[Rfam]
RNA sequence: GAGAUAGCAAUAAUUAUAAAAAUAAUUUAUCGUUCUGAUUUGCUUAAUUUGGGCAUGAGAAACCUUUUAUUACACUCAUAGAAUAUGAGCUACUC
Dot-bracket structure: ..((.((..................................................................................))..))
Numbered sequence: 001g002a003g004a005u006a007g008c009a010a011u012a013a014u015u016a017u018a019a020a021a022a023u024a025a026u027u028u029a030u031c032g033u034u035c036u037g038a039u040u041u042g043c044u045u046a047a048u049u050u051g052g053g054c055a056u057g058a059g060a061a062a063c064c065u066u067u068u069a070u071u072a073c074a075c076u077c078a079u080a081g082a083a084u085a086u087g088a089g090c091u092a093c094u095c
Stems, first nucleotide, its partner, number of pairs: 003095002006091002

The record is a 95-nucleotide RNA from Theobroma cacao, which matches "Small nucleolar RNA snoR8a" in Rfam. It is annotated as a C/D-box small nucleolar RNA. Taxonomically the source falls in Theobroma (Eukaryota, Mesangiospermae, Pentapetalae, Malvaceae). Rfam links the family to the GO terms nucleolus and RNA processing.